[Rfam]
RNA: c-di-GMP-II-GAG riboswitch aptamer
RNA sequence: CUGCCACCGGGACGCGAGGAUCCCCACGGGCCGUUUCGUCGGUCGCCGGGGCCAGCAGCGGGAGCUCUGGUCCGCCCGUGGGGGGAGCGAGUGGCGAGACCGGCCCGGGGCCCU
Numbered sequence: 001c002u003g004c005c006a007c008c009g010g011g012a013c014g015c016g017a018g019g020a021u022c023c024c025c026a027c028g029g030g031c032c033g034u035u036u037c038g039u040c041g042g043u044c045g046c047c048g049g050g051g052c053c054a055g056c057a058g059c060g061g062g063a064g065c066u067c068u069g070g071u072c073c074g075c076c077c078g079u080g081g082g083g084g085g086a087g088c089g090a091g092u093g094g095c096g097a098g099a100c101c102g103g104c105c106c107g108g109g110g111c112c113c114u
Stems, first nucleotide, its partner, number of pairs: 003112001005110001007108005013089003022083008041101002043097005